[Rfam]
RNA sequence: AAUAAUAAAUGUAUAUAUUGUACAUAAACCUGUAUUUGUAUAUAUUAUAUAUAAACUUAGUUGAGAUUAGUAGUGAUAUAUAGUUAUCUACCUCAAGCUAACACUACACUCA
Numbered sequence: 001a002a003u004a005a006u007a008a009a010u011g012u013a014u015a016u017a018u019u020g021u022a023c024a025u026a027a028a029c030c031u032g033u034a035u036u037u038g039u040a041u042a043u044a045u046u047a048u049a050u051a052u053a054a055a056c057u058u059a060g061u062u063g064a065g066a067u068u069a070g071u072a073g074u075g076a077u078a079u080a081u082a083g084u085u086a087u088c089u090a091c092c093u094c095a096a097g098c099u100a101a102c103a104c105u106a107c108a109c110u111c112a
Base pairs, nucleotide, nucleotide: 002048003047004046007043009041010040011039012038013037062112063111064110065109068106069105070104071103073102074101084100088097089096